Background
This 99-nucleotide sequence from Danio rerio belongs to the Rfam family "Z30 small nucleolar RNA". Taxonomically the source falls in Danio (Eukaryota, Teleostei, Otomorpha, Ostariophysi). Rfam classes the family as a C/D-box small nucleolar RNA. It scores 62 bits against the family's covariance model.

RNA sequence: CUGCAAUGAUGAGUGAAAGAAUGCAUCUUGACUUGGUAUUGUUGCUUUUUGGCAUCAUUGACCAAGGUUUGAUUGAGGUUUAAUCUUCUCUCUGAGCUG
Numbered sequence: 001c002u003g004c005a006a007u008g009a010u011g012a013g014u015g016a017a018a019g020a021a022u023g024c025a026u027c028u029u030g031a032c033u034u035g036g037u038a039u040u041g042u043u044g045c046u047u048u049u050u051g052g053c054a055u056c057a058u059u060g061a062c063c064a065a066g067g068u069u070u071g072a073u074u075g076a077g078g079u080u081u082a083a084u085c086u087u088c089u090c091u092c093u094g095a096g097c098u099g
Stems, first nucleotide, its partner, number of pairs: 003097002041056001043054002
Rfam links the family to the GO terms nucleolus and RNA processing.